[Rfam]
RNA sequence: AGGAGGACUGAGAAGGUUGAGCAGCUUGUGUUGUGCUGUUAUAACUGGUUAUAGCCUCCAACAGUAACAAACAAACCACCUGAUCAACUCACUCUGUACUAAACAGAGCUGAUAGGUGUGUUUG
Numbered sequence: 001a002g003g004a005g006g007a008c009u010g011a012g013a014a015g016g017u018u019g020a021g022c023a024g025c026u027u028g029u030g031u032u033g034u035g036c037u038g039u040u041a042u043a044a045c046u047g048g049u050u051a052u053a054g055c056c057u058c059c060a061a062c063a064g065u066a067a068c069a070a071a072c073a074a075a076c077c078a079c080c081u082g083a084u085c086a087a088c089u090c091a092c093u094c095u096g097u098a099c100u101a102a103a104c105a106g107a108g109c110u111g112a113u114a115g116g117u118g119u120g121u122u123u124g
Stems, first nucleotide, its partner, number of pairs: 002059005015046004020040006079116003083113002086110001094106004
RNA: Small nucleolar RNA SNORA47